[Rfam]
A member of the RNA family "Small nucleolar RNA R16" from Triticum aestivum, 88 nucleotides long. A search with the family's covariance model found it, with a score of 68 bits. NCBI's taxonomy places the organism under Eukaryota, Petrosaviidae, Poales, Poaceae, Triticum.
Nucleotides: 088
Base pairs, nucleotide, nucleotide: 004085005084006083007082
Number, partner (000 for none) and nucleotide at each position: 001000g002000c003000u004085g005084g006083c007082a008000a009000g010000u011000g012000a013000u014000g015000a016000u017000c018000a019000g020000a021000u022000a023000u024000c025000c026000u027000a028000c029000a030000c031000u032000c033000u034000c035000a036000a037000u038000g039000g040000a041000a042000a043000a044000u045000u046000c047000c048000a049000u050000g051000u052000g053000u054000g055000g056000a057000c058000u059000a060000a061000u062000a063000a064000u065000c066000u067000c068000u069000g070000c071000u072000u073000a074000u075000u076000a077000u078000c079000u080000g081000a082007u083006g084005c085004c086000u087000u088000g